[Rfam]
RNA: Small nucleolar RNA snoR77
Organism: Triticum aestivum
RNA sequence: AGGCAACCUCUUUGUCUAAUUACAAUGUCUAUGGAGGUAUUGCAUUGCUAGGAGAUUAAAUCUUCUGCUCUUCAGAUUAGCCGAGGGAGGUGCUUGCUGAUAUAAUGGAAAAUCUUUAUUAGCUUAAGAGCAAU
Numbered sequence: 001a002g003g004c005a006a007c008c009u010c011u012u013u014g015u016c017u018a019a020u021u022a023c024a025a026u027g028u029c030u031a032u033g034g035a036g037g038u039a040u041u042g043c044a045u046u047g048c049u050a051g052g053a054g055a056u057u058a059a060a061u062c063u064u065c066u067g068c069u070c071u072u073c074a075g076a077u078u079a080g081c082c083g084a085g086g087g088a089g090g091u092g093c094u095u096g097c098u099g100a101u102a103u104a105a106u107g108g109a110a111a112a113u114c115u116u117u118a119u120u121a122g123c124u125u126a127a128g129a130g131c132a133a134u
Stems, first nucleotide, its partner, number of pairs: 002041002005038001007037002009034002012031001014029001016027001062128003067123003074115005081108002